[Rfam]
RNA: small nucleolar RNA snoR135
Nucleotides: 146
Base pairs, nucleotide, nucleotide: 004066006064007063008062009061010060016043017042018041020039021038081140082139084137085136086135087134088133089132090131091130095127096126097125098124
Number, partner (000 for none) and nucleotide at each position: 001000a002000a003000a004066g005000c006064a007063g008062a009061g010060a011000u012000a013000u014000g015000u016043g017042u018041g019000u020039a021038u022000c023000g024000g025000a026000a027000u028000u029000g030000u031000g032000c033000u034000u035000u036000u037000a038021a039020u040000u041018c042017a043016c044000u045000u046000u047000a048000a049000u050000c051000c052000g053000a054000a055000a056000g057000a058000g059000u060010u061009c062008u063007c064006u065000u066004c067000a068000a069000a070000a071000u072000u073000g074000a075000u076000u077000u078000u079000u080000u081140g082139g083000u084137g085136a086135a087134a088133g089132u090131g091130g092000g093000c094000a095127g096126u097125u098124g099000a100000g101000u102000u103000u104000g105000a106000a107000g108000c109000a110000a111000u112000c113000u114000a115000u116000u117000g118000a119000u120000u121000u122000a123000u124098c125097a126096a127095c128000a129000a130091u131090c132089a133088u134087u135086u136085u137084c138000u139082c140081c141000a142000c143000a144000c145000u146000c